[Rfam]
RNA sequence: AUGAUUAUUGUGGGAGAGAUUAUUGGAAACAAUAACACCGAAGGAAUAAAUUUAGCGUUGCAAGCGCUAGGUGAAGAUCUCAGGUAAAGAGACCGCAGUAGGACG
Numbered sequence: 001a002u003g004a005u006u007a008u009u010g011u012g013g014g015a016g017a018g019a020u021u022a023u024u025g026g027a028a029a030c031a032a033u034a035a036c037a038c039c040g041a042a043g044g045a046a047u048a049a050a051u052u053u054a055g056c057g058u059u060g061c062a063a064g065c066g067c068u069a070g071g072u073g074a075a076g077a078u079c080u081c082a083g084g085u086a087a088a089g090a091g092a093c094c095g096c097a098g099u100a101g102g103a104c105g
Stems, first nucleotide, its partner, number of pairs: 006100008020035004037085003040081002044079002050072008

This 105-nucleotide sequence from Vagococcus allomyrinae belongs to the Rfam family "Glycine riboswitch aptamer". It scores 58 bits against the family's covariance model. Rfam's curators write: This family represents the bacterial glycine riboswitch. Glycine riboswitches usually consist of two metabolite-binding aptamers domains with similar structures in tandem. The aptamers cooperatively bind glycine to regulate the expression of downstream genes.